[Rfam]
RNA: raiA RNA
RNA sequence: UUUUGCAAGGUUUGUGGUUGAAAGUCCAUGCCAGACGCAGGCAAAGGGAUCCACGUAAGCUGAUAUAAAAUAUAUCAGUGAGCAUAGUGCGUUUUAGAUGUAAGACCUACCGCAAAAAGCGAGAGAACUAUUAGUGAGGCAAACCCGAGCAAAACUUCCAGUAGGCGAGUGUGGGGGGAAAGACCAGUGUCAACUUGCAAAA
Numbered sequence: 001u002u003u004u005g006c007a008a009g010g011u012u013u014g015u016g017g018u019u020g021a022a023a024g025u026c027c028a029u030g031c032c033a034g035a036c037g038c039a040g041g042c043a044a045a046g047g048g049a050u051c052c053a054c055g056u057a058a059g060c061u062g063a064u065a066u067a068a069a070a071u072a073u074a075u076c077a078g079u080g081a082g083c084a085u086a087g088u089g090c091g092u093u094u095u096a097g098a099u100g101u102a103a104g105a106c107c108u109a110c111c112g113c114a115a116a117a118a119g120c121g122a123g124a125g126a127a128c129u130a131u132u133a134g135u136g137a138g139g140c141a142a143a144c145c146c147g148a149g150c151a152a153a154a155c156u157u158c159c160a161g162u163a164g165g166c167g168a169g170u171g172u173g174g175g176g177g178g179a180a181a182g183a184c185c186a187g188u189g190u191c192a193a194c195u196u197g198c199a200a201a202a
Base pairs, nucleotide, nucleotide: 001202002201003200004199005198006197007196008195009194012193013192014191015186016185017184018183019182028172029171030170031041033094034093035092036091037090038089039088050087058079062075085179106165107164108163109162110161111121112120113119125158126157127156134150135149138146139145